RNA sequence: UGGAUGUGGAGAGAGCAGAGCGCCUGAAGAAUGGCUCCUUUGUGAUGAACACAUCCAACAGCAACUUGGGCUUACUCCUCACGGGUGGCAGGAUACCCGUGACCUUCCUGUAAUAUUACGCCCUAUAUAU
Numbered sequence: 001u002g003g004a005u006g007u008g009g010a011g012a013g014a015g016c017a018g019a020g021c022g023c024c025u026g027a028a029g030a031a032u033g034g035c036u037c038c039u040u041u042g043u044g045a046u047g048a049a050c051a052c053a054u055c056c057a058a059c060a061g062c063a064a065c066u067u068g069g070g071c072u073u074a075c076u077c078c079u080c081a082c083g084g085g086u087g088g089c090a091g092g093a094u095a096c097c098c099g100u101g102a103c104c105u106u107c108c109u110g111u112a113a114u115a116u117u118a119c120g121c122c123c124u125a126u127a128u129a130u
Stems, first nucleotide, its partner, number of pairs: 002056007015043006022035003069123002072120001076115001081111002084104003088100002091097002
Dot-bracket structure: .(((((((......((((((.(((........)))..))))))......)))))))............((.(...(....((.(((.((.((...)).)).))).....))...)....).)).......
Overview: A member of the RNA family "Small nucleolar RNA SNORA11" from Cnephaeus nilssonii, 130 nucleotides long. About the family: U107 (SNORA11) is a member of the H/ACA class of snoRNAs that guide the sites of modification of uridines to pseudouridines. This snoRNA was identified by RT-PCR from blood cells and its expression confirmed by Northern blot analysis. The source organism's lineage runs through Eukaryota, Opisthokonta, Laurasiatheria, Yangochiroptera and Cnephaeus. The base pairs follow the family's consensus structure, which was predicted with RNAalifold. It is annotated as an H/ACA-box small nucleolar RNA.